A member of the RNA family "MIR2118 microRNA precursor family" from Panicum hallii, 139 nucleotides long. The base pairs follow the family's consensus structure, which was predicted with RNAalifold. It scores 117 bits against the family's covariance model.
RNA sequence: GCGUGGAAGAGGAAUAAAAGAAGGCCUAAGAGCAGUGGGAAUGGGAACAUGGAGGAAGGCCUAUUUUUUUUUUUUUUGAGUCUUCCUGAUGCCUCCCAUUCCUAUCGUUCUUAGGUGCUCACUCCUCUUCCUUUUGGUA
Number, nucleotide and partner (000 for none) at each position: 001g000002c000003g000004u000005g000006g000007a000008a000009g130010a129011g128012g127013a126014a000015u000016a123017a000018a000019a000020g120021a119022a000023g000024g000025c115026c114027u113028a112029a111030g110031a109032g108033c107034a000035g000036u104037g103038g102039g101040a100041a099042u098043g097044g096045g095046a094047a000048c091049a090050u089051g000052g087053a000054g086055g085056a084057a083058g082059g081060c080061c000062u000063a000064u000065u000066u000067u000068u000069u000070u000071u000072u000073u000074u000075u000076u000077u000078g000079a000080g060081u059082c058083u057084u056085c055086c054087u052088g000089a050090u049091g048092c000093c000094u046095c045096c044097c043098a042099u041100u040101c039102c038103u037104a036105u000106c000107g033108u032109u031110c030111u029112u028113a027114g026115g025116u000117g000118c000119u021120c020121a000122c000123u016124c000125c000126u013127c012128u011129u010130c009131c000132u000133u000134u000135u000136g000137g000138u000139a000
Record summary:
Taxonomically the source falls in Panicum hallii (Eukaryota, Streptophyta, Magnoliopsida, commelinids).